[Rfam]
RNA sequence: UAAAAGGGUCGGUUGGCUAUGUAUACCACGCACAUCUUUUAAUUGAUGAUCGUUGUAUGGUUAACAAGGCAUAUGGCCGACAUUAUUUAUGGAUGACAUAGGGUUGGAUUGCUCGGCCAACCCUUUU
Numbered sequence: 001u002a003a004a005a006g007g008g009u010c011g012g013u014u015g016g017c018u019a020u021g022u023a024u025a026c027c028a029c030g031c032a033c034a035u036c037u038u039u040u041a042a043u044u045g046a047u048g049a050u051c052g053u054u055g056u057a058u059g060g061u062u063a064a065c066a067a068g069g070c071a072u073a074u075g076g077c078c079g080a081c082a083u084u085a086u087u088u089a090u091g092g093a094u095g096a097c098a099u100a101g102g103g104u105u106g107g108a109u110u111g112c113u114c115g116g117c118c119a120a121c122c123c124u125u126u127u
Stems, first nucleotide, its partner, number of pairs: 008081005014028003018025002029052002033048004053076007100124008109116002
Dot-bracket structure: .......(((((.(((.((....)))))((..((((........))))..))(((((((..........))))))))))))..................((((((((.((....))))))))))...